[Rfam]
RNA sequence: CUCCCCGAAAUCGCUUGAGGGCGAGCCUCUCAGAUACACCCCGACCGGGGUAGCGCUCUGUGAAUGGAAGGGGUCCCGCCGGGAUUACUGCCUGUUCGCAAACGACAAAGUCGGUCGGGGGGCUCGAGGGAGUCAGACGCCGGGGGAUAAGCUCCGGGGUCAAAAGGGCAACAGCCCAGAUCGUCCGUUAAGGUCCCUAAAUGCACGCUGAGUGGAGAAGGUCGUCGCAGGGCCCAGACAGCCAGGAGGUUGGCUUAGAAGCAGCCAUCCUUGAAAGAGUGCGUAAUAGCUCACUGGUCGCAGUCCCGCGGCGCCGACAAUGUUCGGGGCUAAGCGUGCUACCGAAACGGCGACUGGCCCGCCGCGCGGCGGGCCGGGGUAGGGGAGCGUCCGGUGGCGAGCGAAGCCGGCGUGGAAACGGCGGUGGACGCCACUGGAGUGCGAAU
Numbered sequence: 001c002u003c004c005c006c007g008a009a010a011u012c013g014c015u016u017g018a019g020g021g022c023g024a025g026c027c028u029c030u031c032a033g034a035u036a037c038a039c040c041c042c043g044a045c046c047g048g049g050g051u052a053g054c055g056c057u058c059u060g061u062g063a064a065u066g067g068a069a070g071g072g073g074u075c076c077c078g079c080c081g082g083g084a085u086u087a088c089u090g091c092c093u094g095u096u097c098g099c100a101a102a103c104g105a106c107a108a109a110g111u112c113g114g115u116c117g118g119g120g121g122g123c124u125c126g127a128g129g130g131a132g133u134c135a136g137a138c139g140c141c142g143g144g145g146g147a148u149a150a151g152c153u154c155c156g157g158g159g160u161c162a163a164a165a166g167g168g169c170a171a172c173a174g175c176c177c178a179g180a181u182c183g184u185c186c187g188u189u190a191a192g193g194u195c196c197c198u199a200a201a202u203g204c205a206c207g208c209u210g211a212g213u214g215g216a217g218a219a220g221g222u223c224g225u226c227g228c229a230g231g232g233c234c235c236a237g238a239c240a241g242c243c244a245g246g247a248g249g250u251u252g253g254c255u256u257a258g259a260a261g262c263a264g265c266c267a268u269c270c271u272u273g274a275a276a277g278a279g280u281g282c283g284u285a286a287u288a289g290c291u292c293a294c295u296g297g298u299c300g301c302a303g304u305c306c307c308g309c310g311g312c313g314c315c316g317a318c319a320a321u322g323u324u325c326g327g328g329g330c331u332a333a334g335c336g337u338g339c340u341a342c343c344g345a346a347a348c349g350g351c352g353a354c355u356g357g358c359c360c361g362c363c364g365c366g367c368g369g370c371g372g373g374c375c376g377g378g379g380u381a382g383g384g385g386a387g388c389g390u391c392c393g394g395u396g397g398c399g400a401g402c403g404a405a406g407c408c409g410g411c412g413u414g415g416a417a418a419c420g421g422c423g424g425u426g427g428a429c430g431c432c433a434c435u436g437g438a439g440u441g442c443g444a445a446u
Stems, first nucleotide, its partner, number of pairs: 001387006011024005026132001027130005033124001039120010053106001054104002059100003063096004070089002072086005136161003140157006166177003181353004186349003192343003201340001203339006220315003224312005230306004241298005247271003252266003272276001277292001281290002354377008388441001390438010406425004411420003
Shown here is a 446-nucleotide part of an RNA from Sulfobacillus acidophilus, a member of the family "Bacterial large subunit ribosomal RNA". The sequence is in the family's curated seed alignment. NCBI's taxonomy places the organism under Bacteria, Bacillati, Bacillota, Sulfobacillus, Sulfobacillus acidophilus.